RNA sequence: CGGUGAGGUAGAGGCUGCGUCUUUUAUGAGUACUUUGCACGAGAUUGGGAGUUUUUUUAUGACUGCAGGGGAAAGGAAAAGUCGCCGAAGUUUGUCCGCAUAACUCCAGGCGGGCAGGCUGGGGCUGGUGCCGAACAGGGCCAGCACUGUCACGUUUGUAUCCCCCAUACAAGCGUGGUGCGCUAUCUUGCAG
Numbered sequence: 001c002g003g004u005g006a007g008g009u010a011g012a013g014g015c016u017g018c019g020u021c022u023u024u025u026a027u028g029a030g031u032a033c034u035u036u037g038c039a040c041g042a043g044a045u046u047g048g049g050a051g052u053u054u055u056u057u058u059a060u061g062a063c064u065g066c067a068g069g070g071g072a073a074a075g076g077a078a079a080a081g082u083c084g085c086c087g088a089a090g091u092u093u094g095u096c097c098g099c100a101u102a103a104c105u106c107c108a109g110g111c112g113g114g115c116a117g118g119c120u121g122g123g124g125c126u127g128g129u130g131c132c133g134a135a136c137a138g139g140g141c142c143a144g145c146a147c148u149g150u151c152a153c154g155u156u157u158g159u160a161u162c163c164c165c166c167a168u169a170c171a172a173g174c175g176u177g178g179u180g181c182g183c184u185a186u187c188u189u190g191c192a193g
Base pairs, nucleotide, nucleotide: 006188007187008186009185010184011183017085018084019083021081022080023079024078025077033070034069035068036067037066038065039064089120090119091118092117093116094115095114096113097112098111099110121148122147124145125144126143127142128141129140131138150178151177152176153175154174155173156172157171158170159169

A member of the RNA family "Lysine riboswitch aptamer" from Thermoactinomyces mirandus, 193 nucleotides long. The organism belongs to Thermoactinomyces, within Bacteria. Gene Ontology term of the family: lysine biosynthetic process.